Shown here is a 104-nucleotide RNA from Spirodela intermedia, a member of the family "Small nucleolar RNA snoR31/Z110/Z27". The family's RNA type in Rfam is C/D-box small nucleolar RNA. The base pairs follow the family's consensus structure, which was predicted with PFOLD. For this family Rfam cites "The high diversity of snoRNAs in plants: identification and comparative study of 120 snoRNA genes from Oryza sativa" (Chen et al., Nucleic Acids Res, 2003). The family has 8 seed sequences and 571 matches in Rfam 15.1. The source organism's lineage runs through Eukaryota, Tracheophyta, Alismatales, Lemnoideae and Spirodela.
RNA sequence: AUCAUCAGGUGAUGACAUCUGAAGUAAAUAAUCUUAGGACACCUUCCAACACACUCCAGCUCGCCUGGGUUGUGGAUGAGAAUAAAAUCUUCUCUGAUGAUGGU
Numbered sequence: 001a002u003c004a005u006c007a008g009g010u011g012a013u014g015a016c017a018u019c020u021g022a023a024g025u026a027a028a029u030a031a032u033c034u035u036a037g038g039a040c041a042c043c044u045u046c047c048a049a050c051a052c053a054c055u056c057c058a059g060c061u062c063g064c065c066u067g068g069g070u071u072g073u074g075g076a077u078g079a080g081a082a083u084a085a086a087a088u089c090u091u092c093u094c095u096g097a098u099g100a101u102g103g104u
Stems, first nucleotide, its partner, number of pairs: 001104007